The record is a 76-nucleotide RNA from Drosophila grimshawi, which matches "mir-314 microRNA precursor family" in Rfam. On this family, see Clark et al., Nature 2007: "Evolution of genes and genomes on the Drosophila phylogeny". The source organism's lineage runs through Eukaryota, Pancrustacea, Hexapoda, Drosophilinae and Hawaiian Drosophila.
RNA sequence: UCGUAACUUGUGUGGCUUCGAAUGUACCUGGCUAAGGAAAGUUGGAUUUCCUAGGUAUUCGAGCCAAUAAGUUCGG
Numbered sequence: 001u002c003g004u005a006a007c008u009u010g011u012g013u014g015g016c017u018u019c020g021a022a023u024g025u026a027c028c029u030g031g032c033u034a035a036g037g038a039a040a041g042u043u044g045g046a047u048u049u050c051c052u053a054g055g056u057a058u059u060c061g062a063g064c065c066a067a068u069a070a071g072u073u074c075g076g
Stems, first nucleotide, its partner, number of pairs: 002075002005073007013066005019061003024058005030051002038049003